A member of the RNA family "mir-30 microRNA precursor family" from Gallus gallus, 64 nucleotides long. Rfam links the family to the GO terms gene silencing by miRNA and RISC complex. This family consists of the mammalian microRNA (miRNA) precursor mir-30a.

RNA sequence: GUUGCUGUAAACAUCCCCGACUGGAAGCUGUAGCAGCUUGAGCUUUCAGUCAGAUGUUUGCUGC
Number, nucleotide and partner (000 for none) at each position: 001g000002u000003u000004g000005c063006u000007g061008u060009a059010a058011a057012c056013a055014u054015c053016c000017c000018c000019g000020a050021c049022u048023g047024g046025a045026a044027g043028c042029u041030g000031u000032a000033g000034c000035a000036g000037c000038u000039u000040g000041a029042g028043c027044u026045u025046u024047c023048a022049g021050u020051c000052a000053g015054a014055u013056g012057u011058u010059u009060g008061c007062u000063g005064c000